RNA sequence: AAAAAGGGCUUCUGCCGUGCGUGGCACGGGGGGGUUUUACGGCCGCCCCCGCGGAAUCGACAUCAAGAGAUUUCGGAAGCACAAUUUUUGAACUGGGGGUCGCCGGUAACCGCUUGUUCCGGCGCCCCG
Numbered sequence: 001a002a003a004a005a006g007g008g009c010u011u012c013u014g015c016c017g018u019g020c021g022u023g024g025c026a027c028g029g030g031g032g033g034g035u036u037u038u039a040c041g042g043c044c045g046c047c048c049c050c051g052c053g054g055a056a057u058c059g060a061c062a063u064c065a066a067g068a069g070a071u072u073u074c075g076g077a078a079g080c081a082c083a084a085u086u087u088u089u090g091a092a093c094u095g096g097g098g099g100u101c102g103c104c105g106g107u108a109a110c111c112g113c114u115u116g117u118u119c120c121g122g123c124g125c126c127c128c129g
Base pairs, nucleotide, nucleotide: 008080009079010078011077012076013026014025015024016023017022027051028050029049030048031047032046034044052075053074054073055072056071057070058069097127098126099125100124102123103122104121105120106119108118109117110116

This 129-nucleotide sequence from Circaetus pectoralis belongs to the Rfam family "U11 spliceosomal RNA". NCBI's taxonomy places the organism under Eukaryota, Bilateria, Teleostomi, Accipitriformes, Circaetus. Rfam links the family to the GO terms pre-mRNA 5'-splice site binding, U11 snRNP and mRNA 5'-splice site recognition. Rfam classes the family as a spliceosomal small nuclear RNA.